[Rfam]
Nucleotides: 068
Base pairs, nucleotide, nucleotide: 001067002066003065004064005063006062007061010021011020012019013018023039024038025037026036027035044060045059046058047057048056
Number, partner (000 for none) and nucleotide at each position: 001067g002066u003065u004064c005063c006062c007061g008000u009000a010021g011020u012019u013018g014000a015000g016000a017000a018013c019012a020011a021010c022000a023039a024038u025037g026036g027035c028000u029000u030000u031000u032000c033000a034000a035027g036026c037025c038024g039023u040000a041000g042000u043000c044060c045059u046058u047057g048056g049000g050000g051000u052000c053000u054000a055000a056048c057047c058046a059045a060044g061007c062006g063005g064004g065003a066002a067001u068000a

The family of this 68-nucleotide sequence is "tRNA". Transfer RNA (tRNA) molecules are approximately 80 nucleotides in length. The base pairs follow the family's consensus structure, which is taken from published work.